[Rfam]
RNA sequence: CACUCUAGAUAUCAAAAUAUCUAUAUAUCGUCGUAAUAAGGUCGACAGUUUCUACCCGGAACCAAUUAAUUCUGGACUAUAGGUAAUCGAUGUCAUAAG
Dot-bracket structure: .................((((((((....((((.........)))).........((((((........))))))..))))))))..............
RNA: Purine riboswitch aptamer